Rfam assigns this 109-nucleotide RNA from Marinomonas spartinae to the family "Guanidine-I riboswitch aptamer".
Rfam's curators write: This family represents a conserved RNA structure found upstream of the ykkC and yxkD genes in Bacillus subtilis and related genes in other bacteria.
The pairing is the family consensus, mapped onto this sequence.
The literature on the family includes a 2004 paper in Proc Natl Acad Sci U S A by Barrick et al., "New RNA motifs suggest an expanded scope for riboswitches in bacterial genetic control".
NCBI's taxonomy places the organism under Bacteria, Pseudomonadati, Gammaproteobacteria, Oceanospirillales, Marinomonas.
RNA sequence: GUAAUAGAAGGCUAGGGUUCCGGCUAUAUAGAAAAAUAUAGUGACUGGUCCGAGAGCAUUCGACCUUGUCAGUUUCAAGGUUACACGGCGGGACAAAAGCCCGGGAGAC
Numbered sequence: 001g002u003a004a005u006a007g008a009a010g011g012c013u014a015g016g017g018u019u020c021c022g023g024c025u026a027u028a029u030a031g032a033a034a035a036a037u038a039u040a041g042u043g044a045c046u047g048g049u050c051c052g053a054g055a056g057c058a059u060u061c062g063a064c065c066u067u068g069u070c071a072g073u074u075u076c077a078a079g080g081u082u083a084c085a086c087g088g089c090g091g092g093a094c095a096a097a098a099g100c101c102c103g104g105g106a107g108a109c
Base pairs, nucleotide, nucleotide: 007061008060009059011057012056015051016050020048021047022045023042024041025040026039027038028037062082063081064080065079066078067077068076084104086107090102091101092100